[Rfam]
RNA sequence: CCCCUGAUCUUUUUUCUUGCUACGCGAUAAAAAAAUUAGGGGAUGAUUAACAGAGUUAAUUGCAUGAAAAAUCUAAAGUUUAUCUCGUUUUAGGUCAAUAUGCAGCCAAACUUAUAUUAAUUGUUAAUAUAAGUAGGUUCAACGACCAAUUACCCCCUAAUGGGAGAAUUCUGUAACAAUUACCUUGUUAAAGGUGAUUGUUAAAUACAUGGUCUGAACAAUAAUGUAAAUUAUUG
Numbered sequence: 001c002c003c004c005u006g007a008u009c010u011u012u013u014u015u016c017u018u019g020c021u022a023c024g025c026g027a028u029a030a031a032a033a034a035a036u037u038a039g040g041g042g043a044u045g046a047u048u049a050a051c052a053g054a055g056u057u058a059a060u061u062g063c064a065u066g067a068a069a070a071a072u073c074u075a076a077a078g079u080u081u082a083u084c085u086c087g088u089u090u091u092a093g094g095u096c097a098a099u100a101u102g103c104a105g106c107c108a109a110a111c112u113u114a115u116a117u118u119a120a121u122u123g124u125u126a127a128u129a130u131a132a133g134u135a136g137g138u139u140c141a142a143c144g145a146c147c148a149a150u151u152a153c154c155c156c157c158u159a160a161u162g163g164g165a166g167a168a169u170u171c172u173g174u175a176a177c178a179a180u181u182a183c184c185u186u187g188u189u190a191a192a193g194g195u196g197a198u199u200g201u202u203a204a205a206u207a208c209a210u211g212g213u214c215u216g217a218a219c220a221a222u223a224a225u226g227u228a229a230a231u232u233a234u235u236g
Base pairs, nucleotide, nucleotide: 050174051173052172053171054170056168057167061104062103063102064101065100066099071095072094073093074092075091076090077089078088079087105138106137113131114130115129116128117127142215144214145213146212147211148210176201177200178199179198180197181196182195183194184193221234222233223232224231225230
RNA: Group I catalytic intron
Organism: Macrophomina phaseolina